Shown here is a 312-nucleotide part of an RNA from Akkermansia muciniphila, a member of the family "Bacterial large subunit ribosomal RNA".
The base pairs follow the family's consensus structure, which is taken from published work.
Taxonomically the source falls in Akkermansia (Bacteria, Pseudomonadati, Verrucomicrobiia, Verrucomicrobiales).
Nucleotides: 312
Base pairs, nucleotide, nucleotide: 006024007023008022009021010020011019025309026308027307028306033289034288035287036286039269040268044068045067046066047065048064049063053061054060075265076264077263078262080111081110085106086105087104089102091100092099093098115132116131117130118129119128135261136260137259138258143253145251146250150246151245152244153243154242159232160231161230162229167225170221171220172219173218174217175194176193178191179190196212199208200207201206275284276283291303292302293301294300
Number, partner (000 for none) and nucleotide at each position: 001000g002000u003000u004000a005000a006024g007023c008022c009021g010020g011019g012000u013000g014000a015000a016000a017000u018000c019011c020010c021009c022008g023007g024006c025309c026308g027307c028306c029000g030000u031000a032000a033289a034288c035287c036286c037000g038000a039269g040268g041000u042000u043000u044068c045067c046066a047065g048064g049063g050000c051000a052000a053061c054060g055000u056000g057000u058000u059000u060054c061053g062000u063049c064048c065047c066046u067045g068044g069000g070000u071000u072000a073000g074000c075265c076264g077263g078262g079000a080111c081110c082000u083000a084000a085106g086105c087104c088000g089102a090000g091100g092099c093098c094000g095000a096000g097000a098093g099092g100091c101000g102089u103000a104087g105086g106085c107000g108000a109000u110081g111080g112000a113000c114000a115132u116131c117130a118129g119128g120000u121000u122000a123000a124000u125000a126000a127000u128119c129118c130117u131116g132115a133000g134000c135261u136260c137259g138258c139000a140000a141000c142000c143253c144000u145251u146250a147000a148000a149000c150246u151245g152244g153243g154242g155000g156000g157000a158000c159232g160231c161230a162229u163000g164000a165000g166000a167225a168000a169000a170221g171220a172219u173218g174217a175194c176193u177000a178191g179190g180000u181000u182000a183000u184000u185000g186000a187000a188000u189000u190179c191178c192000g193176a194175g195000u196212u197000g198000a199208g200207u201206c202000c203000a204000c205000g206201g207200a208199c209000u210000c211000a212196g213000c214000g215000c216000a217174u218173c219172a220171u221170u222000g223000g224000a225167u226000c227000g228000a229162g230161u231160g232159c233000c234000a235000a236000g237000a238000a239000a240000a241000g242154c243153c244152c245151c246150a247000g248000c249000g250146u251145a252000u253143g254000c255000u256000a257000a258138g259137c260136g261135a262078c263077c264076c265075g266000u267000a268040c269039c270000g271000c272000a273000a274000a275284c276283c277000g278000a279000c280000a281000c282000a283276g284275g285000u286036g287035g288034g289033u290000g291303g292302g293301u294300a295000g296000a297000a298000u299000a300294u301293a302292c303291c304000a305000a306028g307027g308026c309025g310000u311000a312000a